[Rfam]
RNA sequence: GGUUGGAUUACUGGGCGAAUACUCCUAUGGCAGAUCGCAUUGGCUAGAUAUGCAAGUAAAAUGCUUCUCUGCCAAAGGAGAUUUGCCCCGCAAUUCAUCC
Numbered sequence: 001g002g003u004u005g006g007a008u009u010a011c012u013g014g015g016c017g018a019a020u021a022c023u024c025c026u027a028u029g030g031c032a033g034a035u036c037g038c039a040u041u042g043g044c045u046a047g048a049u050a051u052g053c054a055a056g057u058a059a060a061a062u063g064c065u066u067c068u069c070u071g072c073c074a075a076a077g078g079a080g081a082u083u084u085g086c087c088c089c090g091c092a093a094u095u096c097a098u099c100c
Stems, first nucleotide, its partner, number of pairs: 005096005011090001013088007022080004028074007